[Rfam]
RNA: Group II catalytic intron D1-D4-3
RNA sequence: UCCAUGGUGACGUGGAAUCGGAAGGAAGCUCGAGGCAAACCUCUGGUCUGACGGACAGAAAUCAUAUAAGAGGCAACGUAUGUGGAUAAGGGUGCCAAAGAAUCUGAAGUCCAUAGCUACUAAAACAUACGGUGUAAAUAUGGCAGAUAGAUGGAGGAAAAGAGUUCGUAC
Numbered sequence: 001u002c003c004a005u006g007g008u009g010a011c012g013u014g015g016a017a018u019c020g021g022a023a024g025g026a027a028g029c030u031c032g033a034g035g036c037a038a039a040c041c042u043c044u045g046g047u048c049u050g051a052c053g054g055a056c057a058g059a060a061a062u063c064a065u066a067u068a069a070g071a072g073g074c075a076a077c078g079u080a081u082g083u084g085g086a087u088a089a090g091g092g093u094g095c096c097a098a099a100g101a102a103u104c105u106g107a108a109g110u111c112c113a114u115a116g117c118u119a120c121u122a123a124a125a126c127a128u129a130c131g132g133u134g135u136a137a138a139u140a141u142g143g144c145a146g147a148u149a150g151a152u153g154g155a156g157g158a159a160a161a162g163a164g165u166u167c168g169u170a171c
Stems, first nucleotide, its partner, number of pairs: 001016006028171001031168002036162001040157006046148005062143006073135003077131007084112004090105004